Source information:
Rfam assigns this 79-nucleotide RNA sequence from Mesocricetus auratus to the family "Small nucleolar RNA SNORD115".
RNA sequence: AGGUCUAUGAUGACAAACCAAUGUCAUGCAGAGAGAUGAUGACAUAAAAAUCAUUCUCAAUAGGAUUGCGAUGAGGUCC
Numbered sequence: 001a002g003g004u005c006u007a008u009g010a011u012g013a014c015a016a017a018c019c020a021a022u023g024u025c026a027u028g029c030a031g032a033g034a035g036a037u038g039a040u041g042a043c044a045u046a047a048a049a050a051u052c053a054u055u056c057u058c059a060a061u062a063g064g065a066u067u068g069c070g071a072u073g074a075g076g077u078c079c
Base pairs, nucleotide, nucleotide: 002078003077004076005073008070009069
Dot-bracket structure: .((((..((...........................................................))..)..))).
On this family, see Cavaille et al., Proc Natl Acad Sci U S A 2000: "Identification of brain-specific and imprinted small nucleolar RNA genes exhibiting an unusual genomic organization". Rfam 15.1 lists 3,387 matches to the family in 131 species. By type it is a C/D-box small nucleolar RNA. A search with the family's covariance model found it, with a score of 70 bits.